[Rfam]
RNA: SAH (S-adenosyl-L-homocysteine) riboswitch aptamer
Organism: Amycolatopsis alkalitolerans
RNA sequence: GAGGCCGAGAGGCGCUGCAACGGACCUGGGUCCGCCACGCUCGGCCGCUUUCCGAAACCGCACCAAGGGCGCCUCCCAGCA
Numbered sequence: 001g002a003g004g005c006c007g008a009g010a011g012g013c014g015c016u017g018c019a020a021c022g023g024a025c026c027u028g029g030g031u032c033c034g035c036c037a038c039g040c041u042c043g044g045c046c047g048c049u050u051u052c053c054g055a056a057a058c059c060g061c062a063c064c065a066a067g068g069g070c071g072c073c074u075c076c077c078a079g080c081a
Stems, first nucleotide, its partner, number of pairs: 003046006021034005